[Rfam]
RNA: MIR398 microRNA precursor family
Organism: Tetracentron sinense
RNA sequence: AGGAGCCCAACAGGAGCGAUAUGAGAUCACAUGAGGCAUUGUUAAUGUGUGUCUCAAGUGUUCUCAGGUCGCCCCUGCCGGACUUUC
Numbered sequence: 001a002g003g004a005g006c007c008c009a010a011c012a013g014g015a016g017c018g019a020u021a022u023g024a025g026a027u028c029a030c031a032u033g034a035g036g037c038a039u040u041g042u043u044a045a046u047g048u049g050u051g052u053c054u055c056a057a058g059u060g061u062u063c064u065c066a067g068g069u070c071g072c073c074c075c076u077g078c079c080g081g082a083c084u085u086u087c
Stems, first nucleotide, its partner, number of pairs: 007081002011077004016072004023065004028060003032056001